The record is a 400-nucleotide sequence from Saccharibacter sp. 17.LH.SD, which matches "Bacterial RNase P class A" in Rfam.
Ribonuclease P (RNase P) is a ubiquitous endoribonuclease, found in archaea, bacteria and eukarya as well as chloroplasts and mitochondria. Its best characterised activity is the generation of mature 5'-ends of tRNAs by cleaving the 5'-leader elements of precursor-tRNAs.
The family's RNA type in Rfam is ribozyme.
The organism belongs to Saccharibacter, within Bacteria.
Pairs were carried over by alignment from the consensus structure, which is taken from published work.
It scores 329 bits against the family's covariance model.
RNA sequence: CCAGAUGGCCGGGCAGUCGCUGUAUCGGCGUCACAGCAGGUAUGGAGGAAAGUCCGGGCUCCACAGGAAGACGGUGCCGGCUAACGGCCGGCGGGGGCAACCCUAGGGAAAGUGCCACAGAAACAAAACCGUCCGCCGGGUUUCUCUUUAUGAGAAUCUGCGGAUAAGGGUGAAACGGUGCGGUAAGAGCGCACCGCAGCCUUGGCAACAAGACUGGUCAUGGUAAACCCCACCGGGAGCAAGACCGAAUAGGAGUGGCAAGCCUUACGGCCAUGAGUUUCCUGCUCAGUCACUCGGGUUGGUCGCGUGAGGCAAGUUGCAAAACCUGCCCUAGAGGAAUGACUGCCCCAAUUUUAUAAUCAAAAUUGGACAGAACCCGGCUUACAGGCCAUCUGGUAUA
Numbered sequence: 001c002c003a004g005a006u007g008g009c010c011g012g013g014c015a016g017u018c019g020c021u022g023u024a025u026c027g028g029c030g031u032c033a034c035a036g037c038a039g040g041u042a043u044g045g046a047g048g049a050a051a052g053u054c055c056g057g058g059c060u061c062c063a064c065a066g067g068a069a070g071a072c073g074g075u076g077c078c079g080g081c082u083a084a085c086g087g088c089c090g091g092c093g094g095g096g097g098c099a100a101c102c103c104u105a106g107g108g109a110a111a112g113u114g115c116c117a118c119a120g121a122a123a124c125a126a127a128a129c130c131g132u133c134c135g136c137c138g139g140g141u142u143u144c145u146c147u148u149u150a151u152g153a154g155a156a157u158c159u160g161c162g163g164a165u166a167a168g169g170g171u172g173a174a175a176c177g178g179u180g181c182g183g184u185a186a187g188a189g190c191g192c193a194c195c196g197c198a199g200c201c202u203u204g205g206c207a208a209c210a211a212g213a214c215u216g217g218u219c220a221u222g223g224u225a226a227a228c229c230c231c232a233c234c235g236g237g238a239g240c241a242a243g244a245c246c247g248a249a250u251a252g253g254a255g256u257g258g259c260a261a262g263c264c265u266u267a268c269g270g271c272c273a274u275g276a277g278u279u280u281c282c283u284g285c286u287c288a289g290u291c292a293c294u295c296g297g298g299u300u301g302g303u304c305g306c307g308u309g310a311g312g313c314a315a316g317u318u319g320c321a322a323a324a325c326c327u328g329c330c331c332u333a334g335a336g337g338a339a340u341g342a343c344u345g346c347c348c349c350a351a352u353u354u355u356a357u358a359a360u361c362a363a364a365a366u367u368g369g370a371c372a373g374a375a376c377c378c379g380g381c382u383u384a385c386a387g388g389c390c391a392u393c394u395g396g397u398a399u400a
Base pairs, nucleotide, nucleotide: 001396002395003394004393005392006391007390008389009388010387011385012347013346014345015344016343017342018341020045021044022043023042024041025040026039028037050383051382052381054380055379056378057377058376059239060238061237062236067283070280072235073234074233075232076231077091078090079089080088081087092106093104094103095102096101107230108229112228113227114224115223116222129169130168131165132164133163134162135161136160138158139157177195178194179193180192181191182190196219197216198215199214201212202211203210204209243304244303245302246301253295254294255293256292257291258290274288275287276286277285278284311330312329313328314327316325317324318323